[Rfam]
RNA sequence: GGCGGUCUUCGGUAGUGGCUGCCGGGGAGACUUCUCCGGCCGCUUCGAUCGACGGCCGUA
Numbered sequence: 001g002g003c004g005g006u007c008u009u010c011g012g013u014a015g016u017g018g019c020u021g022c023c024g025g026g027g028a029g030a031c032u033u034c035u036c037c038g039g040c041c042g043c044u045u046c047g048a049u050c051g052a053c054g055g056c057c058g059u060a
Base pairs, nucleotide, nucleotide: 002059003058004057005056006055007054009052010051011050012049013048017044018043019042021040022039023038024037025036026035027034028033

This 60-nucleotide RNA sequence belongs to the Rfam family "Actino-pnp RNA". The match comes from Rfam's covariance-model search (57 bits).